RNA sequence: UACAUAGGGUAACCGAGCGCCUUUGGCGUUAGGAAAGUCCAUACUAGCACAGACUGUGAUGUCUGUAGUGUUUGUGCCUGAUUAAUAAAUAAGUCAGGGGAUAGUUGAUGGCUAUUACGGCGGAUGAAACCUAAGGAUUUAUCUAUGGUGUAAUCCAUAAAGCGCCACAGAGACGAUUUUUUUGGAAACAAAAAAGUGGAACGGGUAAGCCCCACAAGCUAGCAACCCAAAUUUUGGUAGGGGCAUGAAAAUUGAAGGAAACGAACUUACAAUUUUUACAAGUUUUAUACUUGAGAUAAAUGGUUACCAGUUAAGUAAUAAUGCUUAAUUACAGAAUAUGGCUUAUAUAU
Numbered sequence: 001u002a003c004a005u006a007g008g009g010u011a012a013c014c015g016a017g018c019g020c021c022u023u024u025g026g027c028g029u030u031a032g033g034a035a036a037g038u039c040c041a042u043a044c045u046a047g048c049a050c051a052g053a054c055u056g057u058g059a060u061g062u063c064u065g066u067a068g069u070g071u072u073u074g075u076g077c078c079u080g081a082u083u084a085a086u087a088a089a090u091a092a093g094u095c096a097g098g099g100g101a102u103a104g105u106u107g108a109u110g111g112c113u114a115u116u117a118c119g120g121c122g123g124a125u126g127a128a129a130c131c132u133a134a135g136g137a138u139u140u141a142u143c144u145a146u147g148g149u150g151u152a153a154u155c156c157a158u159a160a161a162g163c164g165c166c167a168c169a170g171a172g173a174c175g176a177u178u179u180u181u182u183u184g185g186a187a188a189c190a191a192a193a194a195a196g197u198g199g200a201a202c203g204g205g206u207a208a209g210c211c212c213c214a215c216a217a218g219c220u221a222g223c224a225a226c227c228c229a230a231a232u233u234u235u236g237g238u239a240g241g242g243g244c245a246u247g248a249a250a251a252u253u254g255a256a257g258g259a260a261a262c263g264a265a266c267u268u269a270c271a272a273u274u275u276u277u278a279c280a281a282g283u284u285u286u287a288u289a290c291u292u293g294a295g296a297u298a299a300a301u302g303g304u305u306a307c308c309a310g311u312u313a314a315g316u317a318a319u320a321a322u323g324c325u326u327a328a329u330u331a332c333a334g335a336a337u338a339u340g341g342c343u344u345a346u347a348u349a350u
Base pairs, nucleotide, nucleotide: 004350005349006348007346008308009307010306011305012304013303014302016030017029018028019027020026021025035344036343037342039341040340041339042338043337044222045221046220047219048218049066050065051064052063053062054061072217073216074215075214076213077098078097079096080095081094082093099118100116101115102114103113104112105111119212120211122156123155124154125153130148131147135144136143137142162210163209164206165205166204177195178194180193181192182191183190184189226242227241228240246278247277248276249275250274251273252272279293280292281291282290283289310329311328312327313326314325315324316323317322
RNA: Bacterial RNase P class B
Organism: Firmicutes bacterium CAG:313